[Rfam]
The record is a 119-nucleotide RNA sequence from Sciurus vulgaris, which matches "Small nucleolar RNA SNORA26" in Rfam.
Pairs were carried over by alignment from the consensus structure, which was predicted with RNAalifold.
From the family's description: The snoRNA HBI-6 belong to the H/ACA family of snoRNAs, guiding the pseudouridylation of position U4522 if the 28S rRNA. HBI-6 is the human orthologue of mouse MBI-6 snoRNA.
RNA sequence: GUGCCCUUUUAAGGCUGAUGUACUUUAAGUGGCUACCACAGAAGGGUAAAAUAAGUCUCCAUAAAACCCAGAGAAGAGAUUUUCAAACUCCCCUUUGGAUCCUGUAUGGUGUCUUAGCA
Numbered sequence: 001g002u003g004c005c006c007u008u009u010u011a012a013g014g015c016u017g018a019u020g021u022a023c024u025u026u027a028a029g030u031g032g033c034u035a036c037c038a039c040a041g042a043a044g045g046g047u048a049a050a051a052u053a054a055g056u057c058u059c060c061a062u063a064a065a066a067c068c069c070a071g072a073g074a075a076g077a078g079a080u081u082u083u084c085a086a087a088c089u090c091c092c093c094u095u096u097g098g099a100u101c102c103u104g105u106a107u108g109g110u111g112u113c114u115u116a117g118c119a
Stems, first nucleotide, its partner, number of pairs: 002048009014037001016035002019032001021029001055113001057111001059109003068098006076090003080087002
The literature on the family includes a 2001 paper in EMBO J by Huttenhofer et al., "RNomics: an experimental approach that identifies 201 candidates for novel, small, non-messenger RNAs in mouse".
Rfam links the family to the GO terms RNA processing and nucleolus.
The family's RNA type in Rfam is H/ACA-box small nucleolar RNA.
The source organism's lineage runs through Eukaryota, Bilateria, Teleostomi, Boreoeutheria and Sciurus.